RNA sequence: UGGAAUAUGAUGAAAUCAAUCAGACGGAUUCCCAUUGAUUCCAAUGUGAUAACAUUACCAGCUACUUCUGAUUCUU
Numbered sequence: 001u002g003g004a005a006u007a008u009g010a011u012g013a014a015a016u017c018a019a020u021c022a023g024a025c026g027g028a029u030u031c032c033c034a035u036u037g038a039u040u041c042c043a044a045u046g047u048g049a050u051a052a053c054a055u056u057a058c059c060a061g062c063u064a065c066u067u068c069u070g071a072u073u074c075u076u
Stems, first nucleotide, its partner, number of pairs: 002075004
This 76-nucleotide RNA sequence from Durio zibethinus belongs to the Rfam family "Small nucleolar RNA R12".
On this family, see Chen et al., Nucleic Acids Res 2003: "The high diversity of snoRNAs in plants: identification and comparative study of 120 snoRNA genes from Oryza sativa".
Rfam classes the family as a C/D-box small nucleolar RNA.
From the family's description: snoR12 is a C/D box small nucleolar RNA, which acts as a methylation guide for 25S ribosomal RNA in plants. snoR12 has been alternatively named snoZ44 in Arabidopsis and snoZ131 in rice.